[Rfam]
RNA sequence: CGUAGUUAAGGGCAAACUUGUUGAAAAGCAGGGACGCAAAGCCAAGGGGCUAAAGAAGAAAUCUUCAAUGCCAGCCGGUUGCCGAU
Numbered sequence: 001c002g003u004a005g006u007u008a009a010g011g012g013c014a015a016a017c018u019u020g021u022u023g024a025a026a027a028g029c030a031g032g033g034a035c036g037c038a039a040a041g042c043c044a045a046g047g048g049g050c051u052a053a054a055g056a057a058g059a060a061a062u063c064u065u066c067a068a069u070g071c072c073a074g075c076c077g078g079u080u081g082c083c084g085a086u
Base pairs, nucleotide, nucleotide: 012037013036017032018031019030020029021028022027040080041079042078043077046076047075048072049071050070055066056065057064058063
A member of the RNA family "c-di-GMP-I riboswitch aptamer" from Firmicutes bacterium CAG:536, 86 nucleotides long. The source organism's lineage runs through Bacteria, Bacillati and Bacillota. The match comes from Rfam's covariance-model search (82 bits). The base pairs follow the family's consensus structure, which is taken from published work.